[Rfam]
RNA sequence: GGUGUCACAUGCAUUACUGAGAGAUGUCAUCACACGCUACCUCAUUCUGUGAUGUCAUCACUCAGUACCGCACAUGUCCACC
Numbered sequence: 001g002g003u004g005u006c007a008c009a010u011g012c013a014u015u016a017c018u019g020a021g022a023g024a025u026g027u028c029a030u031c032a033c034a035c036g037c038u039a040c041c042u043c044a045u046u047c048u049g050u051g052a053u054g055u056c057a058u059c060a061c062u063c064a065g066u067a068c069c070g071c072a073c074a075u076g077u078c079c080a081c082c
Base pairs, nucleotide, nucleotide: 001079002078006076007075015067016066017065018064019063020062021061023059024058025057026056028054029053030052031051032050033049
RNA: mir-1419 microRNA precursor family
Organism: Ornithorhynchus anatinus